[Rfam]
RNA sequence: AUACAUACCUGGCAGGGGAGGUACCAUGAUCUCGAAGGUAGUUUUCCCAGGGGGAGGUUUAUCCAUUGCCCUUUGGAUGUGCUGACCCAUGCGAUUUCCCCAAGUGUGGGAAACUUGACUGCAUAAUUCGUAGCAUUUGGGGGACUGUGUUUAUGGUUUCCAC
Numbered sequence: 001a002u003a004c005a006u007a008c009c010u011g012g013c014a015g016g017g018g019a020g021g022u023a024c025c026a027u028g029a030u031c032u033c034g035a036a037g038g039u040a041g042u043u044u045u046c047c048c049a050g051g052g053g054g055a056g057g058u059u060u061a062u063c064c065a066u067u068g069c070c071c072u073u074u075g076g077a078u079g080u081g082c083u084g085a086c087c088c089a090u091g092c093g094a095u096u097u098c099c100c101c102a103a104g105u106g107u108g109g110g111a112a113a114c115u116u117g118a119c120u121g122c123a124u125a126a127u128u129c130g131u132a133g134c135a136u137u138u139g140g141g142g143g144a145c146u147g148u149g150u151u152u153a154u155g156g157u158u159u160c161c162a163c
Base pairs, nucleotide, nucleotide: 012122013121014120015119016048017047018046019045020044021043023042024041026039027038049090051088052087054086056083057082058081060079061078062077063076064075092117093116094115095113096112097111099109100108138162139161140160141159142158144157146155147154148153
RNA: U1 spliceosomal RNA
Organism: Tursiops truncatus